Record summary
Shown here is a 122-nucleotide RNA sequence from Corynebacterium falsenii, a member of the family "atpB RNA". It is annotated as a cis-regulatory element. It scores 87 bits against the family's covariance model. Lineage of the source: Bacteria > Actinomycetota > Mycobacteriales > Corynebacteriaceae > Corynebacterium.
Nucleotides: 122
Base pairs, nucleotide, nucleotide: 002044003043004042005041006040007039008038010037011036064088065087066086067085069082070080071079072078
Number, partner (000 for none) and nucleotide at each position: 001000c002044u003043a004042c005041c006040g007039g008038c009000u010037c011036c012000a013000c014000c015000a016000g017000g018000a019000c020000g021000u022000g023000c024000g025000a026000c027000g028000g029000a030000g031000u032000c033000c034000a035000a036011g037010g038008g039007u040006c041005g042004g043003u044002a045000a046000a047000c048000a049000a050000g051000u052000a053000c054000c055000u056000c057000c058000a059000u060000c061000g062000c063000a064088c065087c066086g067085c068000u069082g070080a071079c072078u073000u074000u075000u076000c077000a078072a079071g080070u081000u082069c083000a084000c085067g086066c087065g088064g089000c090000c091000c092000a093000a094000u095000c096000a097000c098000g099000g100000g101000a102000g103000a104000g105000a106000a107000c108000g109000c110000u111000g112000a113000g114000c115000g116000u117000a118000a119000c120000a121000a122000c